The record is a 166-nucleotide RNA sequence, which matches "Clostridiales-1 RNA" in Rfam.
The sequence is in the family's curated seed alignment.
Rfam classes the family as a small RNA.

RNA sequence: AUAUAAUAAUUCCGUCAUGCAAAUAAGCAGCGAGGCUGCUUGCAGACGGAGCUGCUUAUUUAUAUGACGGAUAAACAGACAUAAGCAUGAAGGACGAUAGUCCGGAAUGCGCAUGGCUGUUACGAUUUCGGGAGUUCGAAGAACGGAGAAAUCGUGAUUAUUAUAU
Numbered sequence: 001a002u003a004u005a006a007u008a009a010u011u012c013c014g015u016c017a018u019g020c021a022a023a024u025a026a027g028c029a030g031c032g033a034g035g036c037u038g039c040u041u042g043c044a045g046a047c048g049g050a051g052c053u054g055c056u057u058a059u060u061u062a063u064a065u066g067a068c069g070g071a072u073a074a075a076c077a078g079a080c081a082u083a084a085g086c087a088u089g090a091a092g093g094a095c096g097a098u099a100g101u102c103c104g105g106a107a108u109g110c111g112c113a114u115g116g117c118u119g120u121u122a123c124g125a126u127u128u129c130g131g132g133a134g135u136u137c138g139a140a141g142a143a144c145g146g147a148g149a150a151a152u153c154g155u156g157a158u159u160a161u162u163a164u165a166u
Stems, first nucleotide, its partner, number of pairs: 002165007011071004018064002021061011035047001036045003075120004080115003085110004092103004123154007134144004